About this RNA: A member of the RNA family "Plant signal recognition particle RNA" from Tripterygium wilfordii, 308 nucleotides long.
[Rfam]
RNA sequence: GUCGAGCCUGGUAGCGGGGGCUUGUGACCCAAGUGGGGACCUUAAGGUGUUGGGACAUUUCCUAAGCCCAUAUAAUCGGGCUCGUGGUUGGCUCUUCACUGGCUUGCCCGUUCCAAGCUAGGAGUUGGCCCAUGGAACUCAUGUGAAGACAUGUGGUUUCAUGGGCCUUAGAGUGGGAGGGAACGCGUGAGGCUGGUUUCACAGAGCAACGAUGACUCCCCUCUCUUAGCAGUGGAAGGAUAGCAGGCCGGUGCCACCAGGGCCCAAUAUGAAUAGAUGGGCUGUGGCUUAAUUGGACCAACACUUUU
Numbered sequence: 001g002u003c004g005a006g007c008c009u010g011g012u013a014g015c016g017g018g019g020g021c022u023u024g025u026g027a028c029c030c031a032a033g034u035g036g037g038g039a040c041c042u043u044a045a046g047g048u049g050u051u052g053g054g055a056c057a058u059u060u061c062c063u064a065a066g067c068c069c070a071u072a073u074a075a076u077c078g079g080g081c082u083c084g085u086g087g088u089u090g091g092c093u094c095u096u097c098a099c100u101g102g103c104u105u106g107c108c109c110g111u112u113c114c115a116a117g118c119u120a121g122g123a124g125u126u127g128g129c130c131c132a133u134g135g136a137a138c139u140c141a142u143g144u145g146a147a148g149a150c151a152u153g154u155g156g157u158u159u160c161a162u163g164g165g166c167c168u169u170a171g172a173g174u175g176g177g178a179g180g181g182a183a184c185g186c187g188u189g190a191g192g193c194u195g196g197u198u199u200c201a202c203a204g205a206g207c208a209a210c211g212a213u214g215a216c217u218c219c220c221c222u223c224u225c226u227u228a229g230c231a232g233u234g235g236a237a238g239g240a241u242a243g244c245a246g247g248c249c250g251g252u253g254c255c256a257c258c259a260g261g262g263c264c265c266a267a268u269a270u271g272a273a274u275a276g277a278u279g280g281g282c283u284g285u286g287g288c289u290u291a292a293u294u295g296g297a298c299c300a301a302c303a304c305u306u307u308u
Stems, first nucleotide, its partner, number of pairs: 001040003004023006028037003044307010056295002058292002061287002065283002068280004073275002076272002078265006087257001089256003093253001099251009108239002111237005117230008127167013140153005168173001175220005186211003193204003
The base pairs follow the family's consensus structure, which is taken from published work. Lineage of the source: Eukaryota > Embryophyta > fabids > Celastraceae > Tripterygium. It scores 250 bits against the family's covariance model.